[Rfam]
RNA sequence: GAGUCUAACAUUUAUGCAAGUGUUUAGGUAUUAAGCCUAAGCGCGUAAUAAAAGUAAACAGAGGUAGAAACCCCUUAGAGUACACUAUUAACUAAUUCUAAUAUCUUUAGAUAGAUUUAAGUAAGAGCAUAGCUAUUAGAACCUAAAAGAUAGUAAACUAUGCCUAAAUAGAGUAAAGCUAGAAGAAACUCUAGUAGAGGCUUGCAGCAGUUCUAACGUGCAAAUUAAUUGUUAAAUUUAGGCAUAGAAGCAAAAGACUAAUUAAACUAUCUAGUAGCUAGUU
Numbered sequence: 001g002a003g004u005c006u007a008a009c010a011u012u013u014a015u016g017c018a019a020g021u022g023u024u025u026a027g028g029u030a031u032u033a034a035g036c037c038u039a040a041g042c043g044c045g046u047a048a049u050a051a052a053a054g055u056a057a058a059c060a061g062a063g064g065u066a067g068a069a070a071c072c073c074c075u076u077a078g079a080g081u082a083c084a085c086u087a088u089u090a091a092c093u094a095a096u097u098c099u100a101a102u103a104u105c106u107u108u109a110g111a112u113a114g115a116u117u118u119a120a121g122u123a124a125g126a127g128c129a130u131a132g133c134u135a136u137u138a139g140a141a142c143c144u145a146a147a148a149g150a151u152a153g154u155a156a157a158c159u160a161u162g163c164c165u166a167a168a169u170a171g172a173g174u175a176a177a178g179c180u181a182g183a184a185g186a187a188a189c190u191c192u193a194g195u196a197g198a199g200g201c202u203u204g205c206a207g208c209a210g211u212u213c214u215a216a217c218g219u220g221c222a223a224a225u226u227a228a229u230u231g232u233u234a235a236a237u238u239u240a241g242g243c244a245u246a247g248a249a250g251c252a253a254a255a256g257a258c259u260a261a262u263u264a265a266a267c268u269a270u271c272u273a274g275u276a277g278c279u280a281g282u283u
Stems, first nucleotide, its partner, number of pairs: 005139004010134001012132006020044003025039005048055002063089005070081002091122002093119003096115002102109002142281001149271006158247011169235001171203004178195006207232004212228001215226002249259002

About this RNA
The family of this 283-nucleotide part of an RNA from Melanomma pulvis-pyrius is "Eukaryotic large subunit ribosomal RNA". It scores 2400 bits against the family's covariance model. Taxonomically the source falls in Melanomma pulvis-pyrius (Eukaryota, Fungi, Dikarya, Melanomma).